[Rfam]
RNA sequence: CUUCCGCCCUCCCCGCACAGGAGGGUGGAUCGAGGCACCGGCGCUCUCUGCCCUGACUGCGCCGCGGGCCUCCGAUCGGCCGGCCGACUGGACCGGCCGAUGCAACUCCGGGCUGCGGUGCCGGGCGGGUUGAGGGUCCCGUUCUGGCGC
Numbered sequence: 001c002u003u004c005c006g007c008c009c010u011c012c013c014c015g016c017a018c019a020g021g022a023g024g025g026u027g028g029a030u031c032g033a034g035g036c037a038c039c040g041g042c043g044c045u046c047u048c049u050g051c052c053c054u055g056a057c058u059g060c061g062c063c064g065c066g067g068g069c070c071u072c073c074g075a076u077c078g079g080c081c082g083g084c085c086g087a088c089u090g091g092a093c094c095g096g097c098c099g100a101u102g103c104a105a106c107u108c109c110g111g112g113c114u115g116c117g118g119u120g121c122c123g124g125g126c127g128g129g130u131u132g133a134g135g136g137u138c139c140c141g142u143u144c145u146g147g148c149g150c
Base pairs, nucleotide, nucleotide: 003029004028005027006026008024009023010022011021012020032072033071034070035069036068038066039064040063041062043060044059045056046055076100077099078098079097080096081095082094105119106118107117109115110114123144124143125142126141127140128139129138
About this RNA: The record is a 150-nucleotide RNA from Streptomyces sp. SAJ15, which matches "Streptomyces sRNA scr5239" in Rfam.